This 157-nucleotide sequence from Enhydra lutris belongs to the Rfam family "U4 spliceosomal RNA". U4 small nuclear RNA (U4 snRNA) is a component of the major U2-dependent spliceosome. Rfam classes the family as a spliceosomal small nuclear RNA. The family's consensus secondary structure is taken from published work. The match comes from Rfam's covariance-model search (74 bits).

RNA sequence: AGCUUUGCGCAGUGGCAGUAUCGUAGCCAAUGAGGUUUCUUUGAGGCGCGAUUAUUGCUAAUUGAAAACGUUUGUUUGAAAAAACUGUGUUUGUUUCUGUAUUUGUAGAACUCUAAAAAGGAGGAAAAAAGGGCAGUUUUUGUAUGCAUGGGAAGUG
Number, nucleotide and partner (000 for none) at each position: 001a000002g000003c000004u000005u000006u000007g000008c000009g000010c000011a000012g000013u000014g000015g000016c000017a000018g000019u000020a052021u051022c050023g049024u048025a000026g047027c046028c045029a000030a000031u000032g000033a000034g042035g041036u000037u000038u000039c000040u000041u035042u034043g000044a000045g028046g027047c026048g024049c023050g022051a021052u020053u000054a000055u000056u000057g000058c000059u000060a000061a000062u000063u000064g000065a000066a000067a000068a000069c000070g000071u000072u000073u000074g000075u000076u000077u000078g000079a000080a000081a000082a000083a000084a000085c000086u000087g134088u133089g000090u130091u129092u128093g000094u126095u125096u124097c123098u122099g000100u000101a000102u000103u000104u000105g000106u000107a000108g000109a000110a000111c000112u000113c000114u000115a000116a000117a000118a000119a000120g000121g000122a098123g097124g096125a095126a094127a000128a092129a091130a090131g000132g000133g088134c087135a000136g000137u000138u000139u000140u000141u000142g000143u000144a000145u000146g000147c000148a000149u000150g000151g000152g000153a000154a000155g000156u000157g000